[Rfam]
RNA sequence: UGCAGUCGGGUAAGUCCUAUACGGCCAGCUCCCAAUGAAUCCCCCAGGUCUUGACCGAAGCAAGGGUAAUUGGUUGUAGCGGCGCGAUAUAGUAAGCUUACCCUUUU
Numbered sequence: 001u002g003c004a005g006u007c008g009g010g011u012a013a014g015u016c017c018u019a020u021a022c023g024g025c026c027a028g029c030u031c032c033c034a035a036u037g038a039a040u041c042c043c044c045c046a047g048g049u050c051u052u053g054a055c056c057g058a059a060g061c062a063a064g065g066g067u068a069a070u071u072g073g074u075u076g077u078a079g080c081g082g083c084g085c086g087a088u089a090u091a092g093u094a095a096g097c098u099u100a101c102c103c104u105u106u107u
Stems, first nucleotide, its partner, number of pairs: 008103008017092005022086002024083002